[Rfam]
RNA sequence: CGUUACGAUACGCUGAAUCGCAAGAGCGGGGGACCCAACAAUCGGGGUGAAUCUCAUGAACAUGAGUAGGGCUACCCAUCUGCCCGAACCCGUCAGCUAACCUCGUAAGCGCAGGAUGAGGAGGA
Numbered sequence: 001c002g003u004u005a006c007g008a009u010a011c012g013c014u015g016a017a018u019c020g021c022a023a024g025a026g027c028g029g030g031g032g033a034c035c036c037a038a039c040a041a042u043c044g045g046g047g048u049g050a051a052u053c054u055c056a057u058g059a060a061c062a063u064g065a066g067u068a069g070g071g072c073u074a075c076c077c078a079u080c081u082g083c084c085c086g087a088a089c090c091c092g093u094c095a096g097c098u099a100a101c102c103u104c105g106u107a108a109g110c111g112c113a114g115g116a117u118g119a120g121g122a123g124g125a
Stems, first nucleotide, its partner, number of pairs: 011111004018025002026106006036044001045091003053066004069085004

c-di-AMP riboswitch aptamer (ydaO/yuaA leader): a 125-nucleotide RNA sequence from Brevibacillus sp. WF146. The source organism's lineage runs through Bacteria, Bacillati, Caryophanales, Paenibacillaceae and Brevibacillus. The base pairs follow the family's consensus structure. About the family: This family represents a conserved RNA structure found upstream of the ydaO and yuaA genes in Bacillus subtilis and related genes in other bacteria. The match comes from Rfam's covariance-model search (98 bits). Its family is annotated with cyclic-di-AMP binding and regulation of gene expression in the Gene Ontology.